The record is a 73-nucleotide RNA from Aspergillus oryzae, which matches "tRNA" in Rfam. The source organism's lineage runs through Eukaryota, saccharomyceta, Pezizomycotina, Aspergillaceae and Aspergillus oryzae. A reference for the family is Hou (1993), "The tertiary structure of tRNA and the development of the genetic code", Trends Biochem Sci.
RNA sequence: GGCCGGGUGGCGCAAUGGUAGCGCGUUGGUUUCCGGUACCAAAGGUUUGCGGGUUCGAGUCCCGUCCUGGUCG
Dot-bracket structure: (((((((..((((.......)))).(((((.......)))))......(((((.......)))))))))))).
Numbered sequence: 001g002g003c004c005g006g007g008u009g010g011c012g013c014a015a016u017g018g019u020a021g022c023g024c025g026u027u028g029g030u031u032u033c034c035g036g037u038a039c040c041a042a043a044g045g046u047u048u049g050c051g052g053g054u055u056c057g058a059g060u061c062c063c064g065u066c067c068u069g070g071u072c073g
Stems, first nucleotide, its partner, number of pairs: 001072007010024004026042005049065005